The family of this 109-nucleotide sequence from Sphingomonas prati is "TPP riboswitch aptamer (THI element)". Lineage of the source: Bacteria > Pseudomonadota > Sphingomonadales > Sphingomonadaceae > Sphingomonas.
RNA sequence: CGACAUUCCCCGGGGGACCGCACGCAGCGGUUGAGAGGUGGCUGUCCGGCCGCGACCCGUUGAACCUGAUCCGGCUGACACCGGCGUAGGGAGGGAGCGGCACUUCACU
Numbered sequence: 001c002g003a004c005a006u007u008c009c010c011c012g013g014g015g016g017a018c019c020g021c022a023c024g025c026a027g028c029g030g031u032u033g034a035g036a037g038g039u040g041g042c043u044g045u046c047c048g049g050c051c052g053c054g055a056c057c058c059g060u061u062g063a064a065c066c067u068g069a070u071c072c073g074g075c076u077g078a079c080a081c082c083g084g085c086g087u088a089g090g091g092a093g094g095g096a097g098c099g100g101c102a103c104u105u106c107a108c109u
Stems, first nucleotide, its partner, number of pairs: 006097005011059004017031005038053005065090004071084004
A reference for the family is Edwards and Ferre-D'Amare (2006), "Crystal structures of the thi-box riboswitch bound to thiamine pyrophosphate analogs reveal adaptive RNA-small molecule recognition", Structure. The family's consensus secondary structure is taken from published work.